[Rfam]
The family of this 81-nucleotide sequence from Operophtera brumata is "mir-184 microRNA precursor family".
RNA sequence: ACUGCGUUGUGCCCUUGUCAUUUUUCCAGCCCCGUGUGAUUGAUACUACUGGACGGAGAACUGAUAAGGGCGUGACCUUUG
Numbered sequence: 001a002c003u004g005c006g007u008u009g010u011g012c013c014c015u016u017g018u019c020a021u022u023u024u025u026c027c028a029g030c031c032c033c034g035u036g037u038g039a040u041u042g043a044u045a046c047u048a049c050u051g052g053a054c055g056g057a058g059a060a061c062u063g064a065u066a067a068g069g070g071c072g073u074g075a076c077c078u079u080u081g
Stems, first nucleotide, its partner, number of pairs: 012070009022060006030052002
The family's consensus secondary structure was predicted with PFOLD. It scores 59 bits against the family's covariance model. The literature on the family includes a 2005 paper in Genes Dev by Chen et al., "The developmental miRNA profiles of zebrafish as determined by small RNA cloning".